This 82-nucleotide sequence from Mastacembelus armatus belongs to the Rfam family "Small nucleolar RNA SNORD79". Rfam's curators write: snoRNA U79 or Z22 is found in intron 7 of the gas5 gene in humans and is also present in mice. Gene Ontology terms of the family: RNA processing and nucleolus. Taxonomically the source falls in Mastacembelus (Eukaryota, Osteoglossocephalai, Ctenosquamata, Acanthomorphata). It scores 77 bits against the family's covariance model.

RNA sequence: AGCUGUCAAUGAUGAUUUUUUGUUUUAAACAAUGGGAAUCUCUCUGAAAAAGAGUGAAAGAUGACUUUUUUCUGAUGCAGUG
Numbered sequence: 001a002g003c004u005g006u007c008a009a010u011g012a013u014g015a016u017u018u019u020u021u022g023u024u025u026u027a028a029a030c031a032a033u034g035g036g037a038a039u040c041u042c043u044c045u046g047a048a049a050a051a052g053a054g055u056g057a058a059a060g061a062u063g064a065c066u067u068u069u070u071u072c073u074g075a076u077g078c079a080g081u082g
Base pairs, nucleotide, nucleotide: 002081003080004079005078006077